[Rfam]
Nucleotides: 114
Stems, first nucleotide, its partner, number of pairs: 001114002004111002007108003011104001014101003018097004037077004049063003
Number, partner (000 for none) and nucleotide at each position: 001114g002113u003000u004111g005110g006000c007108u008107a009106u010000g011104g012000u013000g014101a015100u016099a017000u018097g019096u020095g021094u022000c023000c024000u025000a026000u027000u028000a029000c030000u031000u032000u033000g034000u035000c036000a037077g038076g039075g040074a041000a042000g043000g044000u045000g046000g047000u048000u049063g050062g051061u052000a053000c054000g055000c056000u057000g058000u059000g060000u061051g062050c063049u064000a065000u066000u067000g068000c069000a070000g071000g072000u073000g074040u075039c076038u077037u078000g079000a080000c081000u082000a083000u084000u085000g086000c087000a088000c089000u090000c091000c092000c093000a094021g095020u096019g097018c098000c099016u100015g101014u102000g103000a104011u105000a106009g107008u108007a109000u110005c111004c112000a113002a114001c